[Rfam]
RNA sequence: ACUGGAAGGCCAGGAAGGCUUAGUCUGGUGAAGCAGGACUUGGCUGAUGCACUCUUUCUAGACAAACGGGUGGAAAGAGCUGCCGAUACUGGAGAAAACCACAGGGGUGACUUACAACCCAACAUCU
Numbered sequence: 001a002c003u004g005g006a007a008g009g010c011c012a013g014g015a016a017g018g019c020u021u022a023g024u025c026u027g028g029u030g031a032a033g034c035a036g037g038a039c040u041u042g043g044c045u046g047a048u049g050c051a052c053u054c055u056u057u058c059u060a061g062a063c064a065a066a067c068g069g070g071u072g073g074a075a076a077g078a079g080c081u082g083c084c085g086a087u088a089c090u091g092g093a094g095a096a097a098a099c100c101a102c103a104g105g106g107g108u109g110a111c112u113u114a115c116a117a118c119c120c121a122a123c124a125u126c127u
Stems, first nucleotide, its partner, number of pairs: 002061002004058006017045003022040005068120004078112002080109001083106002090101003

Notes
This 127-nucleotide sequence from Microtus ochrogaster belongs to the Rfam family "Small Cajal body specific RNA 4". It scores 92 bits against the family's covariance model. On this family, see Darzacq et al., EMBO J 2002: "Cajal body-specific small nuclear RNAs: a novel class of 2'-O-methylation and pseudouridylation guide RNAs". Pairs were carried over by alignment from the consensus structure, which was predicted with RNAfold. NCBI's taxonomy places the organism under Eukaryota, Theria, Glires, Rodentia, Microtus. scaRNAs are a specific class of small nuclear RNAs which localise to the Cajal bodies and guide the modification of RNA polymerase II transcribed spliceosomal RNAs U1, U2, U4, U5 and U12. ACA26 belongs to the H/ACA box class of guide RNAs as it has the predicted hairpin-hinge-hairpin-tail structure, conserved H/ACA-box motifs and is found associated with GAR1. The family's RNA type in Rfam is small Cajal body RNA.